[Rfam]
RNA sequence: CUUUUAAAUUCUGCCACAGAAGAUAGCUGAUACUCGAUGUUAUCUUUUGCGGGGGAAUUUCCAAG
Numbered sequence: 001c002u003u004u005u006a007a008a009u010u011c012u013g014c015c016a017c018a019g020a021a022g023a024u025a026g027c028u029g030a031u032a033c034u035c036g037a038u039g040u041u042a043u044c045u046u047u048u049g050c051g052g053g054g055g056a057a058u059u060u061c062c063a064a065g
Stems, first nucleotide, its partner, number of pairs: 001065003006060007014052002017049011
This 65-nucleotide RNA sequence from Lymphocryptovirus macacinegamma4 belongs to the Rfam family "mir-BHRF1-2 microRNA precursor family".
Pairs were carried over by alignment from the consensus structure, which was predicted with RNAalifold.
Rfam's curators write: This family represents the mir-BHRF1-2 microRNA precursor found in human herpesvirus 4 (Epstein-Barr virus), cercopithicine herpesvirus 15 and herpesvirus papio. In Epstein-Barr virus mir-BHRF1-2 is found in the 3' UTR of the BHRF1 (Bam HI fragment H rightward open reading frame 1) gene which is known to encode a distant Bcl-2 homologue.
The source organism's lineage runs through Viruses, Peploviricota, Herviviricetes, Gammaherpesvirinae and Lymphocryptovirus macacinegamma4.